This 371-nucleotide part of an RNA from Sphaerimonospora thailandensis belongs to the Rfam family "Bacterial large subunit ribosomal RNA". The organism belongs to Sphaerimonospora, within Bacteria. The match comes from Rfam's covariance-model search (2652 bits).
RNA sequence: CGGGUGAACUGUGGUUAAGGAACUCGGCAAAUUGCCCCCGUAACUUCGGGAGAAGGGGGGCCUCUGCUGGUGAUCGACCGUGCGUUGUGAGCUGGUGGGGGUCGCAGUGGCCAGGGGGAAGCGACUGUUUACUAAAAACACAGGUCCGUGCGAAGUCGUAAGACGAUGUAUACGGACUGACGCCUGCCCGGUGCCGGAACGUUAAGGGGACCGCUUAGCCUGCCCUUGUGGUGGGCGAAGGUGAGAACUUAAGCGCCGGUAAACGGCGGUGGUAACUAUAACCAUCCUAAGGUAGCGAAAUUCCUUGUCGGGUAAGUUCCGACCUGCACGAAUGGCGUAACGACUUCCCCGCUGUCUCAACCACAGGCCCG
Numbered sequence: 001c002g003g004g005u006g007a008a009c010u011g012u013g014g015u016u017a018a019g020g021a022a023c024u025c026g027g028c029a030a031a032u033u034g035c036c037c038c039c040g041u042a043a044c045u046u047c048g049g050g051a052g053a054a055g056g057g058g059g060g061c062c063u064c065u066g067c068u069g070g071u072g073a074u075c076g077a078c079c080g081u082g083c084g085u086u087g088u089g090a091g092c093u094g095g096u097g098g099g100g101g102u103c104g105c106a107g108u109g110g111c112c113a114g115g116g117g118g119a120a121g122c123g124a125c126u127g128u129u130u131a132c133u134a135a136a137a138a139c140a141c142a143g144g145u146c147c148g149u150g151c152g153a154a155g156u157c158g159u160a161a162g163a164c165g166a167u168g169u170a171u172a173c174g175g176a177c178u179g180a181c182g183c184c185u186g187c188c189c190g191g192u193g194c195c196g197g198a199a200c201g202u203u204a205a206g207g208g209g210a211c212c213g214c215u216u217a218g219c220c221u222g223c224c225c226u227u228g229u230g231g232u233g234g235g236c237g238a239a240g241g242u243g244a245g246a247a248c249u250u251a252a253g254c255g256c257c258g259g260u261a262a263a264c265g266g267c268g269g270u271g272g273u274a275a276c277u278a279u280a281a282c283c284a285u286c287c288u289a290a291g292g293u294a295g296c297g298a299a300a301u302u303c304c305u306u307g308u309c310g311g312g313u314a315a316g317u318u319c320c321g322a323c324c325u326g327c328a329c330g331a332a333u334g335g336c337g338u339a340a341c342g343a344c345u346u347c348c349c350c351g352c353u354g355u356c357u358c359a360a361c362c363a364c365a366g367g368c369c370c371g
Base pairs, nucleotide, nucleotide: 001371002370003369004368009366010365011364012363013362014361015360016359018357019356020355035059036058037057038056039055044049060102061101062100063099064098065097066096067095068094069093070092071091103107115350116349117348118347119346120345121344122342123341126140127139128138143178144177145176146175147174148173149172150171151168155164156163157162181337182336183335184334186267187266188265191264192263193260194259195258196257197256200255201254202253206249207248212243213242214241215240218236219235220234221233222232223231224230268286269285270284271283272282273281287291297324307323308322309321310320311319312318